This 145-nucleotide RNA sequence from Ovis aries belongs to the Rfam family "Small nucleolar RNA SNORA48". Lineage of the source: Eukaryota > Craniata > Eutheria > Pecora > Ovis. The literature on the family includes a 1997 paper in J Mol Biol by Ofengand and Bakin, "Mapping to nucleotide resolution of pseudouridine residues in large subunit ribosomal RNAs from representative eukaryotes, prokaryotes, archaebacteria, mitochondria and chloroplasts". The family is grouped with related families in Rfam's "SNORA48 clan". Rfam classes the family as an H/ACA-box small nucleolar RNA. Gene Ontology terms of the family: nucleolus and RNA processing. Rfam's curators write: The snoRNA ACA 48 has been identified to guide pseudouridylation of the residue U3797 in the 28S rRNA subunit. Pairs were carried over by alignment from the consensus structure, which was predicted with RNAalifold.
RNA sequence: GGUUCCUGACAAUGGGCAAAGAGGCACCUGAUUGGUGGUGUUUCUCUUAUAUCAGUCAAGGGCAAAGCAGAUGUCUAGUCCUUUGUUCAUCCUAGCUUGAUGCCUGGAUUGGUGGCCAGAGCUAUUUCAUGCCUGGGGUACAUUA
Numbered sequence: 001g002g003u004u005c006c007u008g009a010c011a012a013u014g015g016g017c018a019a020a021g022a023g024g025c026a027c028c029u030g031a032u033u034g035g036u037g038g039u040g041u042u043u044c045u046c047u048u049a050u051a052u053c054a055g056u057c058a059a060g061g062g063c064a065a066a067g068c069a070g071a072u073g074u075c076u077a078g079u080c081c082u083u084u085g086u087u088c089a090u091c092c093u094a095g096c097u098u099g100a101u102g103c104c105u106g107g108a109u110u111g112g113u114g115g116c117c118a119g120a121g122c123u124a125u126u127u128c129a130u131g132c133c134u135g136g137g138g139u140a141c142a143u144u145a
Stems, first nucleotide, its partner, number of pairs: 002063004007058002013054003019048003023042006084140005099133001101131001105129003110124002113121001